[Rfam]
RNA sequence: UAGCUAGUAUCUCAUGGAACUAGACUGCUGCAGUCAAAAAAUAAAAUAAAAACGUCUGGUAUCCUUUUAAGGAACUCGAACGGAGG
Numbered sequence: 001u002a003g004c005u006a007g008u009a010u011c012u013c014a015u016g017g018a019a020c021u022a023g024a025c026u027g028c029u030g031c032a033g034u035c036a037a038a039a040a041a042u043a044a045a046a047u048a049a050a051a052a053c054g055u056c057u058g059g060u061a062u063c064c065u066u067u068u069a070a071g072g073a074a075c076u077c078g079a080a081c082g083g084a085g086g
Stems, first nucleotide, its partner, number of pairs: 001027003004023005010018002053082003056078001058076003062073003

This 86-nucleotide RNA from Mahella australiensis belongs to the Rfam family "pan motif". NCBI's taxonomy places the organism under Bacteria, Bacillota, Mahellales, Mahella, Mahella australiensis.